[Rfam]
RNA sequence: UGCACUCGGAGUUGGAGAUACAUGGCAAGCUCCCAUUAAAUCCCCCAGGUGUGAAAGCAAGCAAGGGUAGGUGGUUGUAGCAGCUGGUGUAUUUCUGCUCCUUUU
Numbered sequence: 001u002g003c004a005c006u007c008g009g010a011g012u013u014g015g016a017g018a019u020a021c022a023u024g025g026c027a028a029g030c031u032c033c034c035a036u037u038a039a040a041u042c043c044c045c046c047a048g049g050u051g052u053g054a055a056a057g058c059a060a061g062c063a064a065g066g067g068u069a070g071g072u073g074g075u076u077g078u079a080g081c082a083g084c085u086g087g088u089g090u091a092u093u094u095c096u097g098c099u100c101c102u103u104u105u
Stems, first nucleotide, its partner, number of pairs: 008101005014096003018092005023086004